[Rfam]
RNA sequence: UCAUCAGGUAGGAUAAUUCUUACCUGUUCUUUUUGGAAGGCAAAAUAGAACAUGACGAUUGGAGCUUGCAUGACUUGUGAUUAACGUCUCUGCAUAGUCAGGACUUGCAAAACAAGUUUCUUAAUGAUCAUCUAAC
Dot-bracket structure: ........................((.(((((...))))))).............................((..(((....).))..))......((.(((............................))).))

About this RNA
A member of the RNA family "U8 small nucleolar RNA" from Physeter macrocephalus, 136 nucleotides long. The base pairs follow the family's consensus structure, which is taken from published work. The organism belongs to Physeter, within Eukaryota. The family has 55 seed sequences and 1,597 matches in Rfam 15.1.